[Rfam]
Nucleotides: 076
Stems, first nucleotide, its partner, number of pairs: 001076002004073007012065005019058003023054005030047003
Number, partner (000 for none) and nucleotide at each position: 001076g002075c003000g004073u005072g006071u007070g008069g009068g010067a011000a012065a013064g014063g015062u016061c017000c018000a019058g020057c021056c022000u023054c024053a025052u026051a027050u028000g029000u030047c031046c032045u033000g034000u035000g036000a037000u038000c039000g040000u041000g042000a043000a044000g045032g046031g047030g048000a049000g050027a051026u052025a053024u054023g055000u056021g057020g058019u059000c060000a061016g062015a063014c064013c065012u066000g067010u068009c069008c070007c071006a072005c073004a074000g075002g076001u